[Rfam]
RNA: c-di-GMP-I-GGC riboswitch aptamer
Organism: Candidatus Vecturithrix granuli
RNA sequence: CGUGAAAAGGCCAAACCCGUUGUGAGGCGGGGACGGAAAGCCACGGGUCUUCAAUAAGAAGAUAGCCGGGUUGCCACCA
Number, nucleotide and partner (000 for none) at each position: 001c000002g000003u076004g075005a000006a000007a000008a000009g000010g000011c036012c035013a000014a000015a000016c031017c030018c029019g028020u027021u026022g000023u000024g000025a000026g021027g020028c019029g018030g017031g016032g000033a000034c065035g012036g011037a000038a000039a072040g071041c070042c069043a000044c068045g067046g066047g063048u062049c061050u000051u000052c000053a000054a000055u000056a000057a000058g000059a000060a000061g049062a048063u047064a000065g034066c046067c045068g044069g042070g041071u040072u039073g000074c000075c004076a003077c000078c000079a000